[Rfam]
A member of the RNA family "Bacterial large subunit ribosomal RNA" from Pseudomonas aeruginosa, 359 nucleotides of a longer RNA.
RNA sequence: UGAGAGAACUCGGGUGAAGGAACUAGGCAAAAUGGCACCGUAACUUCGGGAGAAGGUGCGCCGGCUAGGGUGAAGGAUUUACUCCGUAAGCUCUGGCUGGUCGAAGAUACCAGGCCGCUGCGACUGUUUAUUAAAAACACAGCACUCUGCAAACACGAAAGUGGACGUAUAGGGUGUGACGCCUGCCCGGUGCCGGAAGGUUAAUUGAUGGGGUUAGCGCAAGCGAAGCUCUUGAUCGAAGCCCCGGUAAACGGCGGCCGUAACUAUAACGGUCCUAAGGUAGCGAAAUUCCUUGUCGGGUAAGUUCCGACCUGCACGAAUGGCGUAACGAUGGCGGCGCUGUCUCCACCCGAGACUCA
Numbered sequence: 001u002g003a004g005a006g007a008a009c010u011c012g013g014g015u016g017a018a019g020g021a022a023c024u025a026g027g028c029a030a031a032a033u034g035g036c037a038c039c040g041u042a043a044c045u046u047c048g049g050g051a052g053a054a055g056g057u058g059c060g061c062c063g064g065c066u067a068g069g070g071u072g073a074a075g076g077a078u079u080u081a082c083u084c085c086g087u088a089a090g091c092u093c094u095g096g097c098u099g100g101u102c103g104a105a106g107a108u109a110c111c112a113g114g115c116c117g118c119u120g121c122g123a124c125u126g127u128u129u130a131u132u133a134a135a136a137a138c139a140c141a142g143c144a145c146u147c148u149g150c151a152a153a154c155a156c157g158a159a160a161g162u163g164g165a166c167g168u169a170u171a172g173g174g175u176g177u178g179a180c181g182c183c184u185g186c187c188c189g190g191u192g193c194c195g196g197a198a199g200g201u202u203a204a205u206u207g208a209u210g211g212g213g214u215u216a217g218c219g220c221a222a223g224c225g226a227a228g229c230u231c232u233u234g235a236u237c238g239a240a241g242c243c244c245c246g247g248u249a250a251a252c253g254g255c256g257g258c259c260g261u262a263a264c265u266a267u268a269a270c271g272g273u274c275c276u277a278a279g280g281u282a283g284c285g286a287a288a289u290u291c292c293u294u295g296u297c298g299g300g301u302a303a304g305u306u307c308c309g310a311c312c313u314g315c316a317c318g319a320a321u322g323g324c325g326u327a328a329c330g331a332u333g334g335c336g337g338c339g340c341u342g343u344c345u346c347c348a349c350c351c352g353a354g355a356c357u358c359a
Base pairs, nucleotide, nucleotide: 001359002358003357004356009354010353011352012351013350014349015348016347018345019344020343035059036058037057038056039055044049060101061100062099063098064097065096068084069083070082071081072080073079102106114338115337116336117335118334119333120332121330122329125139126138127137142177143176144175145174146173147172148171149170150167154163155162156161180325181324182323183322185255186254187253190252191251192248193247194246195245196244199243200242201241210232211231212230213229214228217224218223256274257273258272259271260270261269275279285312295311296310297309298308299307300306
The base pairs follow the family's consensus structure, which is taken from published work. The source organism's lineage runs through Bacteria, Pseudomonadati, Pseudomonadota, Pseudomonadaceae and Pseudomonas aeruginosa. Rfam's curators put it in the seed alignment.